[Rfam]
The record is a 98-nucleotide RNA sequence from Desulfatibacillum alkenivorans, which matches "TPP riboswitch aptamer (THI element)" in Rfam.
Vitamin B(1) in its active form thiamin pyrophosphate (TPP) is an essential coenzyme that is synthesised by coupling of pyrimidine and thiazole moieties in bacteria.
Lineage of the source: Bacteria > Thermodesulfobacteriota > Desulfatibacillaceae > Desulfatibacillum > Desulfatibacillum alkenivorans.

RNA sequence: CAGACUCAUUAGGGGUGUUCCUUGACUGAGAGCCCUUCGGGCAACCCUUAAGACCUGACCAGGGUAAUUCCUGCGUAGGGAAAUGAGCCGGAGCUUAU
Numbered sequence: 001c002a003g004a005c006u007c008a009u010u011a012g013g014g015g016u017g018u019u020c021c022u023u024g025a026c027u028g029a030g031a032g033c034c035c036u037u038c039g040g041g042c043a044a045c046c047c048u049u050a051a052g053a054c055c056u057g058a059c060c061a062g063g064g065u066a067a068u069u070c071c072u073g074c075g076u077a078g079g080g081a082a083a084u085g086a087g088c089c090g091g092a093g094c095u096u097a098u
Stems, first nucleotide, its partner, number of pairs: 006086005011048004017026003033041003054079004060073004